aspS RNA: an 81-nucleotide RNA sequence. Rfam classes the family as a cis-regulatory element. The family's consensus secondary structure is taken from published work.
RNA sequence: GUGCGGGGACGCUGUCUACGCACCCCCGCGCCAUCUGUCGGGAGCCGUCCGUUACGGCACGGGACGGCACAGAUGAGAGGA
Numbered sequence: 001g002u003g004c005g006g007g008g009a010c011g012c013u014g015u016c017u018a019c020g021c022a023c024c025c026c027c028g029c030g031c032c033a034u035c036u037g038u039c040g041g042g043a044g045c046c047g048u049c050c051g052u053u054a055c056g057g058c059a060c061g062g063g064a065c066g067g068c069a070c071a072g073a074u075g076a077g078a079g080g081a
Base pairs, nucleotide, nucleotide: 001031002030003029004028005027006026007025008021010020011019033074034073035072036071037070038069044068045067046066047065048064049063050062